This 67-nucleotide sequence from Bombyx mori belongs to the Rfam family "mir-2774 microRNA precursor family". Its family is annotated with RISC complex and miRNA-mediated post-transcriptional gene silencing in the Gene Ontology. The source organism's lineage runs through Eukaryota, Arthropoda, Allotriocarida, Obtectomera and Bombyx. A reference for the family is Liu et al. (2010), "MicroRNAs of Bombyx mori identified by Solexa sequencing", BMC Genomics.
[Rfam]
Nucleotides: 067
Base pairs, nucleotide, nucleotide: 004064005063010058011057012056015053016052020049021048022047023046025044027042028041029040
Number, partner (000 for none) and nucleotide at each position: 001000a002000c003000a004064a005063c006000a007000c008000u009000a010058g011057g012056a013000c014000u015053g016052u017000c018000g019000g020049u021048c022047u023046a024000c025044c026000g027042a028041g029040c030000a031000a032000u033000u034000u035000c036000a037000c038000u039000g040029g041028c042027u043000g044025g045000a046023u047022g048021g049020a050000a051000a052016a053015u054000c055000u056012u057011c058010c059000c060000u061000u062000a063005g064004u065000c066000g067000u